Overview: Shown here is a 68-nucleotide RNA from Acidianus brierleyi, a member of the family "Sulfolobus sRNA133". By type it is a small RNA. Rfam's curators write: This RNA has structural homologues in 3 archaeon Sulfolobus genomes: tokodaii, acidocalarius and solfotaricus. The organism belongs to Acidianus, within Archaea. The literature on the family includes a 2005 paper in Mol Microbiol by Tang et al., "Identification of novel non-coding RNAs as potential antisense regulators in the archaeon Sulfolobus solfataricus".

RNA sequence: AAGGCACCCAAUGAAACUCCCCAUGUCCUUGAAGGGAGUGGUUUAGCUCCCGUAGACGGCAUGGGAAG
Numbered sequence: 001a002a003g004g005c006a007c008c009c010a011a012u013g014a015a016a017c018u019c020c021c022c023a024u025g026u027c028c029u030u031g032a033a034g035g036g037a038g039u040g041g042u043u044u045a046g047c048u049c050c051c052g053u054a055g056a057c058g059g060c061a062u063g064g065g066a067a068g
Stems, first nucleotide, its partner, number of pairs: 018066004024061004029056002034051006